[Rfam]
RNA: Small nucleolar RNA SNORD66
Organism: Brachypteracias leptosomus
RNA sequence: CUCCCGUGAUGAACUCUUUAUGACUUCGUGUCUGGGCCACUGAUGCUCUGUGAUGGUAUUGAGGUUCUGAGGGG
Number, nucleotide and partner (000 for none) at each position: 001c074002u073003c072004c071005c000006g000007u000008g000009a000010u000011g000012a000013a000014c000015u000016c000017u000018u000019u000020a000021u000022g000023a000024c000025u000026u000027c000028g000029u000030g000031u000032c000033u000034g000035g000036g000037c000038c000039a000040c000041u000042g000043a000044u000045g000046c000047u000048c000049u000050g000051u000052g000053a000054u000055g000056g000057u000058a000059u000060u000061g000062a000063g000064g000065u000066u000067c000068u000069g000070a000071g004072g003073g002074g001